[Rfam]
Shown here is an 87-nucleotide RNA from Tropheryma whipplei, a member of the family "tRNA". Pairs were carried over by alignment from the consensus structure, which is taken from published work. The family's RNA type in Rfam is transfer RNA.
RNA sequence: GGUAGCGUGUCUGAGUGGCCGAAAGAGCGCGCCUCGAAAGCGCGUGAGCGCACCUGUGCUCCGUGGGUUCAAAUCCCACCGCUACCG
Number, nucleotide and partner (000 for none) at each position: 001g086002g085003u084004a083005g082006c081007g080008u000009g000010u026011c025012u024013g000014a000015g000016u000017g000018g000019c000020c000021g000022a000023a000024a012025g011026a010027g000028c044029g043030c042031g041032c040033c000034u000035c000036g000037a000038a000039a000040g032041c031042g030043c029044g028045u000046g000047a000048g000049c000050g000051c000052a000053c000054c000055u000056g000057u000058g000059c000060u000061c000062c000063g079064u078065g077066g076067g075068u000069u000070c000071a000072a000073a000074u000075c067076c066077c065078a064079c063080c007081g006082c005083u004084a003085c002086c001087g000